[Rfam]
RNA sequence: AUCGGACCUGUGUUACAGGUGGCUCCACCGGGCGCCUAUCCCUCGGCAACUA
Number, nucleotide and partner (000 for none) at each position: 001a000002u000003c000004g000005g000006a020007c019008c018009u017010g016011u015012g000013u000014u000015a011016c010017a009018g008019g007020u006021g000022g000023c000024u000025c000026c000027a000028c046029c045030g044031g043032g042033c000034g000035c000036c000037u000038a000039u000040c000041c000042c032043u031044c030045g029046g028047c000048a000049a000050c000051u000052a000
RNA: sul1 RNA